[Rfam]
RNA sequence: UGCCAAUGUAAUAACUUAUUCUGUGGUCACUUUGAGUUACGAUAAUUACUAUGUUAAUUUACGAGAUUAUAGUAACUCCUUACUAAGUGAUUUACUAUAACAUUAUGGUAAAUAUCACCGUGAGUUAUAGUAACCCAACUAUCGUAAAUAUGUAUUGAUAUUAUCGUAAAUUAGUAUAUAAAAUUAUCGUAAAUUGAGGUGGCUAUAGAAUAACUUAUUUUGUAGCUA
Number, nucleotide and partner (000 for none) at each position: 001u228002g227003c000004c225005a000006a223007u222008g221009u000010a219011a218012u217013a216014a215015c000016u213017u212018a211019u210020u209021c208022u207023g206024u205025g204026g203027u202028c201029a200030c199031u198032u197033u196034g000035a000036g000037u192038u191039a190040c189041g188042a187043u186044a185045a184046u183047u182048a000049c000050u178051a177052u176053g175054u174055u173056a172057a171058u170059u169060u168061a167062c166063g000064a000065g165066a164067u163068u000069a161070u160071a159072g000073u000074a155075a000076c000077u000078c000079c000080u147081u146082a145083c144084u000085a000086a000087g142088u141089g140090a000091u138092u137093u132094a131095c130096u129097a128098u127099a126100a125101c124102a000103u122104u000105a000106u000107g000108g116109u000110a000111a000112a000113u000114a000115u000116c108117a000118c000119c000120g000121u000122g103123a000124g101125u100126u099127a098128u097129a096130g095131u094132a093133a000134c000135c000136c000137a092138a091139c000140u089141a088142u087143c000144g083145u082146a081147a080148a000149u000150a000151u000152g000153u000154a000155u074156u000157g000158a000159u071160a070161u069162u000163a067164u066165c065166g062167u061168a060169a059170a058171u057172u056173a055174g054175u053176a052177u051178a050179u000180a000181a000182a047183a046184u045185u044186a043187u042188c041189g040190u039191a038192a037193a000194u000195u000196g033197a032198g031199g030200u029201g028202g027203c026204u025205a024206u023207a022208g021209a020210a019211u018212a017213a016214c000215u014216u013217a012218u011219u010220u000221u008222g007223u006224a000225g004226c000227u002228a001

The record is a 228-nucleotide sequence from Miscanthus lutarioriparius, which matches "MIR6217 microRNA precursor family" in Rfam. The match comes from Rfam's covariance-model search (176 bits).